[Rfam]
RNA: Bacterial small signal recognition particle RNA
Organism: Marinobacter gudaonensis
RNA sequence: CAUUGGUGCCUCCGCAACAUGAAACCGUGAACCCGGUCAGGCCCGGAAGGGAGCAGCCGCAGCGGUGGAAUUGUGUGCCGGGGUGUCGCUGAUGGAG
Numbered sequence: 001c002a003u004u005g006g007u008g009c010c011u012c013c014g015c016a017a018c019a020u021g022a023a024a025c026c027g028u029g030a031a032c033c034c035g036g037u038c039a040g041g042c043c044c045g046g047a048a049g050g051g052a053g054c055a056g057c058c059g060c061a062g063c064g065g066u067g068g069a070a071u072u073g074u075g076u077g078c079c080g081g082g083g084u085g086u087c088g089c090u091g092a093u094g095g096a097g
Base pairs, nucleotide, nucleotide: 004091005090006089007088008087010083011082012081013080014079015075017074018073019072024066025065026064027063028062034059035058036057037056042051043050044049